[Rfam]
RNA sequence: GUUUUCGGGUAAUUGCGGCAUAACUCGAUUAUGCUGAGGAAAGUCCAUGCUCGCACAAGCUGAGAUGCUUGUAGUGUUCGUGCCUAGCGAAACCAUAAGCUAGGGUACUUGAGAAAGUAACGGCAGGAAAAAUGGCUAAGGUGUAAGCUAUGCCAAAGUAUCCUUGAAAGUGCCACAGUGACGAAGCAAGGCGGGAAACCGUCUUGGUGGAACGCGGUAAACCCCUCGAGCGAGCAACCCAAACAAUGGUAGGGGCACUUUUUGCACGGAAAUGAACGGAGCAAGAAGGCAAGUAAUUGCAGAUAGAUAAUUACCCAGUGUUUUCUUCUCCCUGAGGAAAAUACGGACAAAACAUGGCUUAUAGAA
Numbered sequence: 001g002u003u004u005u006c007g008g009g010u011a012a013u014u015g016c017g018g019c020a021u022a023a024c025u026c027g028a029u030u031a032u033g034c035u036g037a038g039g040a041a042a043g044u045c046c047a048u049g050c051u052c053g054c055a056c057a058a059g060c061u062g063a064g065a066u067g068c069u070u071g072u073a074g075u076g077u078u079c080g081u082g083c084c085u086a087g088c089g090a091a092a093c094c095a096u097a098a099g100c101u102a103g104g105g106u107a108c109u110u111g112a113g114a115a116a117g118u119a120a121c122g123g124c125a126g127g128a129a130a131a132a133u134g135g136c137u138a139a140g141g142u143g144u145a146a147g148c149u150a151u152g153c154c155a156a157a158g159u160a161u162c163c164u165u166g167a168a169a170g171u172g173c174c175a176c177a178g179u180g181a182c183g184a185a186g187c188a189a190g191g192c193g194g195g196a197a198a199c200c201g202u203c204u205u206g207g208u209g210g211a212a213c214g215c216g217g218u219a220a221a222c223c224c225c226u227c228g229a230g231c232g233a234g235c236a237a238c239c240c241a242a243a244c245a246a247u248g249g250u251a252g253g254g255g256c257a258c259u260u261u262u263u264g265c266a267c268g269g270a271a272a273u274g275a276a277c278g279g280a281g282c283a284a285g286a287a288g289g290c291a292a293g294u295a296a297u298u299g300c301a302g303a304u305a306g307a308u309a310a311u312u313a314c315c316c317a318g319u320g321u322u323u324u325c326u327u328c329u330c331c332c333u334g335a336g337g338a339a340a341a342u343a344c345g346g347a348c349a350a351a352a353c354a355u356g357g358c359u360u361a362u363a364g365a366a
Base pairs, nucleotide, nucleotide: 004366005365006364007362008315009314010313011312012311013310014309016036017035018034019033020032021031041360042359043358045357046356047355048354049353050234051233052232053231054230055072056071057070058069059068060067078229079228080227082225083104084103085102086101087100088099105121106119107118108117109116110115122224123223125164126163127162128161133155134154135153136152140149141148142147170222171221172218173217174216187206188205189204190203191202192201193200194199238254239253240252258288259287260286261285262284263283264282289300290299291298292297318344319343320342321341322340323339324338325337326336327335328334
RNA: Bacterial RNase P class B
Organism: Enterococcus casseliflavus